[Rfam]
RNA: Mammalian CPEB3 ribozyme
RNA sequence: GGUUUAUUCACGGGAUCCACGGAAGGAGCGUUCAUUUCGCGGUCCUCAUCAGAUGAGUUCUCUCAUUUGCCAAUCCUUCC
Numbered sequence: 001g002g003u004u005u006a007u008u009c010a011c012g013g014g015a016u017c018c019a020c021g022g023a024a025g026g027a028g029c030g031u032u033c034a035u036u037u038c039g040c041g042g043u044c045c046u047c048a049u050c051a052g053a054u055g056a057g058u059u060c061u062c063u064c065a066u067u068u069g070c071c072a073a074u075c076c077u078u079c080c
Stems, first nucleotide, its partner, number of pairs: 012046004017042002021080007028040003050069007